[Rfam]
A member of the RNA family "U5 spliceosomal RNA" from Lepisosteus oculatus, 117 nucleotides long.
The source organism's lineage runs through Eukaryota, Chordata, Vertebrata, Neopterygii and Lepisosteus.
RNA sequence: UCACUCUGGUUUCUCUUCAGAUCGUAUAAAUCUUUCGCCUUUUACUAAAGAUUUCCGUGGAGAGGAACAAUAUGAGUUUCAACCAAUUUUUUGAUUGCCCUGCCUCACGGCGGGGCU
Numbered sequence: 001u002c003a004c005u006c007u008g009g010u011u012u013c014u015c016u017u018c019a020g021a022u023c024g025u026a027u028a029a030a031u032c033u034u035u036c037g038c039c040u041u042u043u044a045c046u047a048a049a050g051a052u053u054u055c056c057g058u059g060g061a062g063a064g065g066a067a068c069a070a071u072a073u074g075a076g077u078u079u080c081a082a083c084c085a086a087u088u089u090u091u092u093g094a095u096u097g098c099c100c101u102g103c104c105u106c107a108c109g110g111c112g113g114g115g116c117u
Stems, first nucleotide, its partner, number of pairs: 003077004009068011028054008097116006